The record is a 76-nucleotide RNA, which matches "RAGATH-18 RNA" in Rfam. It is one of the family's seed sequences. By type it is a small RNA.
[Rfam]
RNA sequence: CCUAUUGAGUGUUAUAUCAAAUGAUAGUAGAAGUGAGAUUUACCUCACUUUGAGGUCAGACACGGUGAUGUAGGAA
Numbered sequence: 001c002c003u004a005u006u007g008a009g010u011g012u013u014a015u016a017u018c019a020a021a022u023g024a025u026a027g028u029a030g031a032a033g034u035g036a037g038a039u040u041u042a043c044c045u046c047a048c049u050u051u052g053a054g055g056u057c058a059g060a061c062a063c064g065g066u067g068a069u070g071u072a073g074g075a076a
Stems, first nucleotide, its partner, number of pairs: 001074005009063005022058003030051008